RNA sequence: AAUCUAGCUUACUCACCCAAGUAAUUGGGUGAAGGCUGGCGGUUUUUUAACCGUCGGCCU
Numbered sequence: 001a002a003u004c005u006a007g008c009u010u011a012c013u014c015a016c017c018c019a020a021g022u023a024a025u026u027g028g029g030u031g032a033a034g035g036c037u038g039g040c041g042g043u044u045u046u047u048u049a050a051c052c053g054u055c056g057g058c059c060u
Base pairs, nucleotide, nucleotide: 014031015030016029017028018027034059035058036057037056038055039054040053041052042051043050